[Rfam]
RNA sequence: AGCUGCAAGAUUGAGGCCACAGCAGAAGCGCUCGUGGCAGCCCUGUCAAAUUCCAACAAAUCUGUGAAUUCUGCU
Numbered sequence: 001a002g003c004u005g006c007a008a009g010a011u012u013g014a015g016g017c018c019a020c021a022g023c024a025g026a027a028g029c030g031c032u033c034g035u036g037g038c039a040g041c042c043c044u045g046u047c048a049a050a051u052u053c054c055a056a057c058a059a060a061u062c063u064g065u066g067a068a069u070u071c072u073g074c075u
Stems, first nucleotide, its partner, number of pairs: 013043001015042003021075007028038002047064002050061003
The family of this 75-nucleotide RNA from Crocodylus porosus is "Mammalian CPEB3 ribozyme". Rfam links the family to the GO term RNA nuclease activity. Pairs were carried over by alignment from the consensus structure, which is taken from published work. NCBI's taxonomy places the organism under Eukaryota, Dipnotetrapodomorpha, Tetrapoda, Archelosauria, Crocodylus. Rfam describes the family as follows. The mammalian CPEB3 ribozyme is a self cleaving RNA located in the second intron of the CPEB3 gene which belongs to a family of genes regulating messenger RNA polyadenylation. This ribozyme is highly conserved and found only in mammals. The CPEB3 ribozyme is structurally and biochemically related to the human hepatitis delta virus (HDV) ribozyme and the HDV ribozyme is proposed to have arisen from the human transcriptome. There is currently only one other known self cleaving ribozyme in mammals, the CoTC motif.